Shown here is a 505-nucleotide part of an RNA from Halomicrobium mukohataei, a member of the family "Archaeal small subunit ribosomal RNA". A reference for the family is Yusupov et al. (2001), "Crystal structure of the ribosome at 5.5 A resolution", Science. Gene Ontology terms of the family: structural constituent of ribosome and ribosome. It is one of the family's seed sequences. The family's consensus secondary structure is taken from published work. The family is grouped with related families in Rfam's "SSU clan". NCBI's taxonomy places the organism under Archaea, Methanobacteriota, Halobacteria, Haloarculaceae, Halomicrobium.
[Rfam]
RNA sequence: AUUCCGGUUGAUCCUGCCGGAGGCCAUUGCUAUCGGAGUCCGAUUUAGCCAUGCUAGUCGCACGGGCUUAGACCCGUGGCAUAUAGCUCAGUAACACGUGGCCAAACUACCCUAUAGACCAUGAUAACCUCGGGAAACUGAGGCUAAUCGUGGAUAUCGCAUUCACGCUUGAACUGCCGAAUGCGAGAAACGUUCCGGCGCUAUAGGAUGUGGCUGCGGCCGAUUAGGUAGACGGUGGGGUAACGGCCCACCGUGCCAGUAAUCGGUACGGGUGGUGACAGCCAGAACCCGGAGACGGUAUCUGAGACAAGAUACCGGGCCCUACGGGGCGCAGCAGGCGCGAAACCUUUACACUGCACGACAGUGCGAUAGGGGGACUCCGAGUGCGAGGGCAUAUAGCCCUCGCUUUUUUCGACCCUAAGGUGGUCGACGAAUAAGGACUGGGCAAGACCGGUGCCAGCCGCCGCGGUAAUACCGGCAGUCCGAGUGAUGGCCGCUGUUAUUG
Numbered sequence: 001a002u003u004c005c006g007g008u009u010g011a012u013c014c015u016g017c018c019g020g021a022g023g024c025c026a027u028u029g030c031u032a033u034c035g036g037a038g039u040c041c042g043a044u045u046u047a048g049c050c051a052u053g054c055u056a057g058u059c060g061c062a063c064g065g066g067c068u069u070a071g072a073c074c075c076g077u078g079g080c081a082u083a084u085a086g087c088u089c090a091g092u093a094a095c096a097c098g099u100g101g102c103c104a105a106a107c108u109a110c111c112c113u114a115u116a117g118a119c120c121a122u123g124a125u126a127a128c129c130u131c132g133g134g135a136a137a138c139u140g141a142g143g144c145u146a147a148u149c150g151u152g153g154a155u156a157u158c159g160c161a162u163u164c165a166c167g168c169u170u171g172a173a174c175u176g177c178c179g180a181a182u183g184c185g186a187g188a189a190a191c192g193u194u195c196c197g198g199c200g201c202u203a204u205a206g207g208a209u210g211u212g213g214c215u216g217c218g219g220c221c222g223a224u225u226a227g228g229u230a231g232a233c234g235g236u237g238g239g240g241u242a243a244c245g246g247c248c249c250a251c252c253g254u255g256c257c258a259g260u261a262a263u264c265g266g267u268a269c270g271g272g273u274g275g276u277g278a279c280a281g282c283c284a285g286a287a288c289c290c291g292g293a294g295a296c297g298g299u300a301u302c303u304g305a306g307a308c309a310a311g312a313u314a315c316c317g318g319g320c321c322c323u324a325c326g327g328g329g330c331g332c333a334g335c336a337g338g339c340g341c342g343a344a345a346c347c348u349u350u351a352c353a354c355u356g357c358a359c360g361a362c363a364g365u366g367c368g369a370u371a372g373g374g375g376g377a378c379u380c381c382g383a384g385u386g387c388g389a390g391g392g393c394a395u396a397u398a399g400c401c402c403u404c405g406c407u408u409u410u411u412u413c414g415a416c417c418c419u420a421a422g423g424u425g426g427u428c429g430a431c432g433a434a435u436a437a438g439g440a441c442u443g444g445g446c447a448a449g450a451c452c453g454g455u456g457c458c459a460g461c462c463g464c465c466g467c468g469g470u471a472a473u474a475c476c477g478g479c480a481g482u483c484c485g486a487g488u489g490a491u492g493g494c495c496g497c498u499g500u501u502a503u504u505g
Stems, first nucleotide, its partner, number of pairs: 004020005022495010033383009042341001048339003052336003057080003062077005087294003097218007106211002111207007119153004128143006158185007167177002192199002220266003227257003232254008269291004273284004296317006319330004347373001349372003355368005386406008412430006438484006451478004460467002